The record is a 72-nucleotide RNA from Streptomyces sp. A0642, which matches "ASpks TB sRNA" in Rfam. It is annotated as an antisense RNA. It scores 71 bits against the family's covariance model. NCBI's taxonomy places the organism under Bacteria, Actinomycetota, Kitasatosporales, Streptomycetaceae, Streptomyces. The base pairs follow the family's consensus structure, which is taken from published work.

[Rfam]
RNA sequence: CUUCACCGAGCCGAGCCAGGCCGGUCCCCCGGCGCGCUCCUGCCCGUAGGUGGCGAGCAGCGCCCGGGCCUC
Numbered sequence: 001c002u003u004c005a006c007c008g009a010g011c012c013g014a015g016c017c018a019g020g021c022c023g024g025u026c027c028c029c030c031g032g033c034g035c036g037c038u039c040c041u042g043c044c045c046g047u048a049g050g051u052g053g054c055g056a057g058c059a060g061c062g063c064c065c066g067g068g069c070c071u072c
Stems, first nucleotide, its partner, number of pairs: 015021002028068003035062002040057002044053003